[Rfam]
RNA: Small nucleolar RNA SNORA31
RNA sequence: CUGCAUCCACUGAUAGACCUCGAACAGUUUGUGGUUGUUCUUCUGGUUUGCACUAGGAUGCAAAAGGAAACUCUCCCUGCGCUUCCUGCCUGCCUUUGUGGCAGUUCAGAUUGAAUUAGGGAGUACAUCU
Numbered sequence: 001c002u003g004c005a006u007c008c009a010c011u012g013a014u015a016g017a018c019c020u021c022g023a024a025c026a027g028u029u030u031g032u033g034g035u036u037g038u039u040c041u042u043c044u045g046g047u048u049u050g051c052a053c054u055a056g057g058a059u060g061c062a063a064a065a066g067g068a069a070a071c072u073c074u075c076c077c078u079g080c081g082c083u084u085c086c087u088g089c090c091u092g093c094c095u096u097u098g099u100g101g102c103a104g105u106u107c108a109g110a111u112u113g114a115a116u117u118a119g120g121g122a123g124u125a126c127a128u129c130u
Base pairs, nucleotide, nucleotide: 002062003061004060005059006058007057008056011052012051014050015049016048017047018046019045022040023039024038025037026036027035028034074122075121076120077119078118079117082113086109087108088107090104091103092102093101094100